[Rfam]
RNA sequence: AUGACGCGGCCGCCGAAUUCGCGAUCACGCGAAACCGGGGACCCAAUUUUCUGGGGUGAAUCGACGCGCUUUCCUAUGAGCGCGCCGUUGGGCACUUCCACGCCCGAAUCCGUCAGCUAACCCGGUAGGCGGCAUGGAAGCAAGGA
Numbered sequence: 001a002u003g004a005c006g007c008g009g010c011c012g013c014c015g016a017a018u019u020c021g022c023g024a025u026c027a028c029g030c031g032a033a034a035c036c037g038g039g040g041a042c043c044c045a046a047u048u049u050u051c052u053g054g055g056g057u058g059a060a061u062c063g064a065c066g067c068g069c070u071u072u073c074c075u076a077u078g079a080g081c082g083c084g085c086c087g088u089u090g091g092g093c094a095c096u097u098c099c100a101c102g103c104c105c106g107a108a109u110c111c112g113u114c115a116g117c118u119a120a121c122c123c124g125g126u127a128g129g130c131g132g133c134a135u136g137g138a139a140g141c142a143a144g145g146a
Stems, first nucleotide, its partner, number of pairs: 011131004018033005034126006044053002054111003062087002065084006090105004